[Rfam]
RNA sequence: CGAGGCCCUCCGUGGCAAGGGUGGAACGCUUGCCUCAUUGCCGUGGCAAUGAAGCAAGCAUUCUGCCAGGCCGCUCACACUGCCUGC
Numbered sequence: 001c002g003a004g005g006c007c008c009u010c011c012g013u014g015g016c017a018a019g020g021g022u023g024g025a026a027c028g029c030u031u032g033c034c035u036c037a038u039u040g041c042c043g044u045g046g047c048a049a050u051g052a053a054g055c056a057a058g059c060a061u062u063c064u065g066c067c068a069g070g071c072c073g074c075u076c077a078c079a080c081u082g083c084c085u086g087c
Base pairs, nucleotide, nucleotide: 004084005083006082012074013073014072015071016070020067021066022065023064024063025062026061028059029058030057031056032055033054037050038049039048040047041046
The record is an 87-nucleotide RNA from Cnephaeus nilssonii, which matches "mir-9195 microRNA precursor family" in Rfam. Its family is annotated with miRNA-mediated post-transcriptional gene silencing and RISC complex in the Gene Ontology. The family's consensus secondary structure was predicted with RNAalifold. Lineage of the source: Eukaryota > Vertebrata > Theria > Laurasiatheria > Cnephaeus.